[Rfam]
RNA sequence: UUCUUAUCAAGAGUGGCGGAGGGAAAUGGCCCUGCGAAGCCCGGCAACCGGUUUAUUCACGGUGCUAAAUCCAUCAGAGCAACAGCUCUGAAAGAUAAGAA
Dot-bracket structure: ((((((((....(.(((...(((..[[[[)))......))))((((.((((.....))..))))))...(]]]]((((((....))))))..)))))))))
Description
SAM riboswitch aptamer (S box leader): a 101-nucleotide RNA from Bacillus sp. cl95. Taxonomically the source falls in Bacillus (Bacteria, Bacillota, Caryophanales, Bacillaceae). It scores 88 bits against the family's covariance model. Pairs were carried over by alignment from the consensus structure, which is taken from published work. Rfam describes the family as follows. The SAM riboswitch is found upstream of a number of genes which code for proteins involved in methionine or cysteine biosynthesis in Gram-positive bacteria.